[Rfam]
RNA: MIR7486 microRNA precursor family
RNA sequence: CACGUCAGCGCACUUUGCUGAUGUGGACACAAAUCGCGCUUUCAAGGCUGCGCUUUGUUCCCAUGUCAGUAAAUUGCGCUGACGUGG
Dot-bracket structure: ((((((((((((.((((((((.((((..(((((.((((.((....)).)))).)))))..)))).)))))))).)))))))))))).